[Rfam]
RNA sequence: UGGAGGGGCAGGGCUUAGCUCGCUCCGUGAACAGCUCAGUGUAAACCUGUGUUCACAGUGGCUAAGUUCCGCUCCUUGC
Numbered sequence: 001u002g003g004a005g006g007g008g009c010a011g012g013g014c015u016u017a018g019c020u021c022g023c024u025c026c027g028u029g030a031a032c033a034g035c036u037c038a039g040u041g042u043a044a045a046c047c048u049g050u051g052u053u054c055a056c057a058g059u060g061g062c063u064a065a066g067u068u069c070c071g072c073u074c075c076u077u078g079c
Base pairs, nucleotide, nucleotide: 011069012068013067014066015065016064017063018062019061020060027056028055029054030053031052032051033050
RNA: mir-27 microRNA precursor family